This 85-nucleotide sequence from Onychostoma macrolepis belongs to the Rfam family "mir-184 microRNA precursor family".
Lineage of the source: Eukaryota > Chordata > Neopterygii > Acrossocheilinae > Onychostoma.
It scores 83 bits against the family's covariance model.

RNA sequence: UCGCUCACAUCUCCUUAUCACUUUUCCAGCCCAGCUGAAGAUGGUGAAUCUGUUGGACGGAGAACUGAUAAGGGCAUGUGGCUGA
Dot-bracket structure: ...........(((((((((.((((((..((.......................))..)))))).)))))))))...........